[Rfam]
Shown here is a 437-nucleotide sequence from Melioribacter sp., a member of the family "Bacterial RNase P class A".

RNA sequence: UGAUUCGUGUUGGGCAGUUGCUUACCCCAUUUAGUGGGGAAAGAGGAAAGUCCGAACUCCGCAGAACGAGGUGCCGGGUAACUCCCGGGGACUCCAGUACGCAAGUAUUGAGUCACGGAAAGUGCCACAGAGACCAUACCGCCCGGCAUUAGCCGGGUAAGGGUGAAAAGGCGAGGUAAGAGCUCACCGCUCCGAUGGUAACAUCGGGGGCAGGGCAAACCCCACCUGGUGCAAGGUCGAGCAGAAGGGAUUCCGAUGCGACCGGUUUAUAUCCGGUUUUUCGGUUCGAAGUUGUUCGCUUCGAUUUCUUCCUUUAUUGGAAGAAUAACCUUCGGGUAGAUCGCUUGAUCGCGGCAGUAAUGCCGUGGCUAGAUAAAUAACUGCCGCCCCGAUCUUAUCGGGGAACAGAAUUCGGCUUACAGACACGGAAUCAUCAU
Numbered sequence: 001u002g003a004u005u006c007g008u009g010u011u012g013g014g015c016a017g018u019u020g021c022u023u024a025c026c027c028c029a030u031u032u033a034g035u036g037g038g039g040a041a042a043g044a045g046g047a048a049a050g051u052c053c054g055a056a057c058u059c060c061g062c063a064g065a066a067c068g069a070g071g072u073g074c075c076g077g078g079u080a081a082c083u084c085c086c087g088g089g090g091a092c093u094c095c096a097g098u099a100c101g102c103a104a105g106u107a108u109u110g111a112g113u114c115a116c117g118g119a120a121a122g123u124g125c126c127a128c129a130g131a132g133a134c135c136a137u138a139c140c141g142c143c144c145g146g147c148a149u150u151a152g153c154c155g156g157g158u159a160a161g162g163g164u165g166a167a168a169a170g171g172c173g174a175g176g177u178a179a180g181a182g183c184u185c186a187c188c189g190c191u192c193c194g195a196u197g198g199u200a201a202c203a204u205c206g207g208g209g210g211c212a213g214g215g216c217a218a219a220c221c222c223c224a225c226c227u228g229g230u231g232c233a234a235g236g237u238c239g240a241g242c243a244g245a246a247g248g249g250a251u252u253c254c255g256a257u258g259c260g261a262c263c264g265g266u267u268u269a270u271a272u273c274c275g276g277u278u279u280u281u282c283g284g285u286u287c288g289a290a291g292u293u294g295u296u297c298g299c300u301u302c303g304a305u306u307u308c309u310u311c312c313u314u315u316a317u318u319g320g321a322a323g324a325a326u327a328a329c330c331u332u333c334g335g336g337u338a339g340a341u342c343g344c345u346u347g348a349u350c351g352c353g354g355c356a357g358u359a360a361u362g363c364c365g366u367g368g369c370u371a372g373a374u375a376a377a378u379a380a381c382u383g384c385c386g387c388c389c390c391g392a393u394c395u396u397a398u399c400g401g402g403g404a405a406c407a408g409a410a411u412u413c414g415g416c417u418u419a420c421a422g423a424c425a426c427g428g429a430a431u432c433a434u435c436a437u
Base pairs, nucleotide, nucleotide: 001433002432003431004430005429006428008425009424010423011422012420013385014384015383016382017381018380019379021043022042023041025039026038027037028036029035048418049417050416052415053414054413055412056411057231059229060228069227070226071225072224073223074088075087076086077085078084089116090114091113092112093111117222118221122220123219124216125215126214139162140161141158142157143156144155145154146153147152170188171187173185174184175183189211190209191208192207193206194205195204196203197202235342236341237340238339244333245332246331247330248329310321311320312319349368350367351366352365353364354363355362356361

Source information
NCBI's taxonomy places the organism under Bacteria, Ignavibacteriota, Ignavibacteria, Ignavibacteriales, Melioribacter.